[Rfam]
RNA sequence: GAUUUAUACAGAAGUGGCGAGAGAUCAGGCUCUUUGACCCACUGACAACCCCCCGAUCGGUUUCGGGGAAGGUGCCAAUUCCUGUCCCGAGAGGGAAACUAUAAAUA
Numbered sequence: 001g002a003u004u005u006a007u008a009c010a011g012a013a014g015u016g017g018c019g020a021g022a023g024a025u026c027a028g029g030c031u032c033u034u035u036g037a038c039c040c041a042c043u044g045a046c047a048a049c050c051c052c053c054c055g056a057u058c059g060g061u062u063u064c065g066g067g068g069a070a071g072g073u074g075c076c077a078a079u080u081c082c083u084g085u086c087c088c089g090a091g092a093g094g095g096a097a098a099c100u101a102u103a104a105a106u107a
Stems, first nucleotide, its partner, number of pairs: 002106007013043005021032003026084004044076001046074002049072002051068004085096004

Rfam assigns this 107-nucleotide RNA from Daejeonella rubra to the family "SAM riboswitch aptamer (S box leader)".
Pairs were carried over by alignment from the consensus structure, which is taken from published work.
Rfam links the family to the GO term regulation of gene expression.